[Rfam]
RNA: L31-Firmicutes ribosomal protein leader
RNA sequence: CUUUGAUCGAAAUAAUUGAAGUAGAUCAAGGCGGAAGGAG
Numbered sequence: 001c002u003u004u005g006a007u008c009g010a011a012a013u014a015a016u017u018g019a020a021g022u023a024g025a026u027c028a029a030g031g032c033g034g035a036a037g038g039a040g
Stems, first nucleotide, its partner, number of pairs: 001031008